Record summary: A member of the RNA family "Flavo-1 RNA", 67 nucleotides long. It is annotated as a small RNA.
RNA sequence: UCCUAGCCCGGAUAGAAGCGGCAUCCUUUUUUUUCAAAAAAAGAUACAGCGGAUAGCCGGAAUAGCU
Numbered sequence: 001u002c003c004u005a006g007c008c009c010g011g012a013u014a015g016a017a018g019c020g021g022c023a024u025c026c027u028u029u030u031u032u033u034u035c036a037a038a039a040a041a042a043g044a045u046a047c048a049g050c051g052g053a054u055a056g057c058c059g060g061a062a063u064a065g066c067u
Base pairs, nucleotide, nucleotide: 009059010058011057013055014054018050019049023045024044025043029040030039031038032037